RNA sequence: GGCUGGGUUUGGAUUGUUGUACUUUUUUUUUUGUUCGUUGCAUUUUAAGGAACAAAAAAAAAGGCCAACCCUUCACACCAUUCAU
Number, nucleotide and partner (000 for none) at each position: 001g000002g000003c000004u000005g000006g079007g078008u077009u000010u075011g074012g073013a072014u000015u000016g069017u068018u067019g066020u000021a000022c064023u063024u062025u061026u060027u059028u058029u057030u056031u055032u054033g053034u052035u051036c050037g000038u048039u000040g000041c000042a000043u000044u000045u000046u000047a000048a038049g000050g036051a035052a034053c033054a032055a031056a030057a029058a028059a027060a026061a025062a024063g023064g022065c000066c019067a018068a017069c016070c000071c000072u013073u012074c011075a010076c000077a008078c007079c006080a000081u000082u000083c000084a000085u000
Rfam assigns this 85-nucleotide RNA from Cavia porcellus to the family "mir-3613 microRNA precursor family". NCBI's taxonomy places the organism under Eukaryota, Eumetazoa, Glires, Rodentia, Cavia. Pairs were carried over by alignment from the consensus structure, which was predicted with RNAalifold.